[Rfam]
RNA sequence: AGCUGAUGCAUCUUGUGGUUUCUCUCCCAGUACCACCGCAUUAGCUGUUCCCCUCUGGAGGUUUUUUGACCUUCACAAUUAUAAGGGCCCUGGUUUUCCGGUGGCCCUCUUUU
Numbered sequence: 001a002g003c004u005g006a007u008g009c010a011u012c013u014u015g016u017g018g019u020u021u022c023u024c025u026c027c028c029a030g031u032a033c034c035a036c037c038g039c040a041u042u043a044g045c046u047g048u049u050c051c052c053c054u055c056u057g058g059a060g061g062u063u064u065u066u067u068g069a070c071c072u073u074c075a076c077a078a079u080u081a082u083a084a085g086g087g088c089c090c091u092g093g094u095u096u097u098c099c100g101g102u103g104g105c106c107c108u109c110u111u112u113u
Stems, first nucleotide, its partner, number of pairs: 001046005007040003015036004056075007084108006090101004
Alphaproteobacterial ar15: a 113-nucleotide RNA sequence from Rhizobium johnstonii. Lineage of the source: Bacteria > Pseudomonadota > Hyphomicrobiales > Rhizobiaceae > Rhizobium johnstonii. Rfam classes the family as a small RNA. Gene Ontology term of the family: protein binding.